[Rfam]
RNA sequence: UGACCACAUCCACUUACGGACGUUAAGGCCAUACGGACAGCCGGGUCAAAUGCCGA
Dot-bracket structure: (((((((.(((......))).))....................)))))........
Numbered sequence: 001u002g003a004c005c006a007c008a009u010c011c012a013c014u015u016a017c018g019g020a021c022g023u024u025a026a027g028g029c030c031a032u033a034c035g036g037a038c039a040g041c042c043g044g045g046u047c048a049a050a051u052g053c054c055g056a
Stems, first nucleotide, its partner, number of pairs: 001048005006023002009020003